The family of this 169-nucleotide RNA sequence from Enterococcus canis is "M-box riboswitch aptamer (ykoK leader)". Rfam's curators write: M-box riboswitch, also know as ykoK leader is described as a metaloregulatory RNA that sense divalent metals and function as a genetic control element of genes related to divalent metal transport in bacteria. It was first reported upstream of the B.subtilis ykoK gene and genes with related functions in other bacteria. Rfam 15.1 lists 1,095 matches to the family in 932 species. It scores 132 bits against the family's covariance model. Its family is annotated with regulation of gene expression and response to magnesium ion in the Gene Ontology.
RNA sequence: AAAAUGUAUUGUUAGGUGAGGCUCCUAUACAGAAAUAAGCUGCUGCCGCGAAAGGAUCGAGAGACCCUUAGUUGGUUGAACAGGAAUGAUCGUGAAGGUCAUUCAUAAUGUAGCUGAUGAUUUCUAUCUACGCUGUAUAGUGCUAAAGCUCAACGAUAGAAGACUAUUU
Numbered sequence: 001a002a003a004a005u006g007u008a009u010u011g012u013u014a015g016g017u018g019a020g021g022c023u024c025c026u027a028u029a030c031a032g033a034a035a036u037a038a039g040c041u042g043c044u045g046c047c048g049c050g051a052a053a054g055g056a057u058c059g060a061g062a063g064a065c066c067c068u069u070a071g072u073u074g075g076u077u078g079a080a081c082a083g084g085a086a087u088g089a090u091c092g093u094g095a096a097g098g099u100c101a102u103u104c105a106u107a108a109u110g111u112a113g114c115u116g117a118u119g120a121u122u123u124c125u126a127u128c129u130a131c132g133c134u135g136u137a138u139a140g141u142g143c144u145a146a147a148g149c150u151c152a153a154c155g156a157u158a159g160a161a162g163a164c165u166a167u168u169u
Base pairs, nucleotide, nucleotide: 006164007163009161010160011154012153013096015150016149017148020144021143022142025140026139027138028137029136030135031134032133039114040113041112042111043110045076046075047074048073054067055066057064058063084104085103086102089099090098091097116128117127118126